[Rfam]
RNA: Actinobacteria sRNA Ms_IGR-5
RNA sequence: ACGCAAGAAAGGAGGUGGUCCAAGAGAUGGUUGAUCUUAGGACUGGCGAGGUGGCCGUCCGCUAGGACGACGCUCGCGUUCGCGCGACGUCGUUCGCAGCGAAUCCCAGACGGACACCCGGACCCCGGGCCGCCGGAACUCGUCCGACCGGCCCCGCCCCAGCGGCGGGAGCAGCCCGGGGUCUGCCCAUG
Number, nucleotide and partner (000 for none) at each position: 001a000002c000003g000004c000005a000006a000007g000008a000009a000010a000011g000012g000013a000014g059015g058016u057017g056018g055019u054020c000021c000022a000023a000024g000025a000026g000027a000028u000029g000030g000031u000032u000033g000034a000035u000036c000037u000038u000039a000040g000041g000042a000043c000044u000045g000046g000047c000048g000049a000050g000051g000052u000053g000054g019055c018056c017057g016058u015059c014060c101061g100062c099063u098064a000065g000066g094067a093068c092069g000070a090071c089072g088073c000074u000075c000076g000077c000078g000079u000080u000081c000082g000083c000084g000085c000086g000087a000088c072089g071090u070091c000092g068093u067094u066095c000096g000097c000098a063099g062100c061101g060102a000103a000104u000105c000106c000107c000108a000109g000110a000111c000112g000113g000114a000115c000116a000117c000118c000119c185120g184121g183122a182123c181124c180125c179126c178127g177128g176129g175130c174131c000132g152133c151134c150135g149136g148137a000138a000139c000140u000141c000142g000143u000144c000145c000146g000147a000148c136149c135150g134151g133152c132153c000154c000155c000156g000157c000158c000159c000160c000161a000162g000163c000164g000165g000166c000167g000168g000169g000170a000171g000172c000173a000174g130175c129176c128177c127178g126179g125180g124181g123182u122183c121184u120185g119186c000187c000188c000189a000190u000191g000